[Rfam]
RNA sequence: UGGCACCCAAUGAUGUGGCUUUGGAUACAAGGAGUUCUCAAUGGAAGAGGCGUGUAAAUAUUCGGCCACAGAAACAAAAUGUGAAAGUCAGUUCAAGAAAGUUCGCCAUGGGAGACUGCCAUGCCGUUCUUAAAGGUACAGUAGCACCUAACUAUGGGACAAGAUUUAAGUAAGCAUAAAGUUUUUGUUAAGGAAUUAAAAGAGGCUUUAAAGACACGGGGAAUAAAGGUUAAGAGUAAUGAUCUUUUUAAGUUUUUUGACCUUAUUAAGGACACCUGUCCAU
Numbered sequence: 001u002g003g004c005a006c007c008c009a010a011u012g013a014u015g016u017g018g019c020u021u022u023g024g025a026u027a028c029a030a031g032g033a034g035u036u037c038u039c040a041a042u043g044g045a046a047g048a049g050g051c052g053u054g055u056a057a058a059u060a061u062u063c064g065g066c067c068a069c070a071g072a073a074a075c076a077a078a079a080u081g082u083g084a085a086a087g088u089c090a091g092u093u094c095a096a097g098a099a100a101g102u103u104c105g106c107c108a109u110g111g112g113a114g115a116c117u118g119c120c121a122u123g124c125c126g127u128u129c130u131u132a133a134a135g136g137u138a139c140a141g142u143a144g145c146a147c148c149u150a151a152c153u154a155u156g157g158g159a160c161a162a163g164a165u166u167u168a169a170g171u172a173a174g175c176a177u178a179a180a181g182u183u184u185u186u187g188u189u190a191a192g193g194a195a196u197u198a199a200a201a202g203a204g205g206c207u208u209u210a211a212a213g214a215c216a217c218g219g220g221g222a223a224u225a226a227a228g229g230u231u232a233a234g235a236g237u238a239a240u241g242a243u244c245u246u247u248u249u250a251a252g253u254u255u256u257u258u259g260a261c262c263u264u265a266u267u268a269a270g271g272a273c274a275c276c277u278g279u280c281c282a283u
Stems, first nucleotide, its partner, number of pairs: 007032002015028003038048002088136002092133002104126001107123005142162001144160001147158004167210003170206002217259008227245006268283001270281004
RNA: Mason-Pfizer monkey virus packaging signal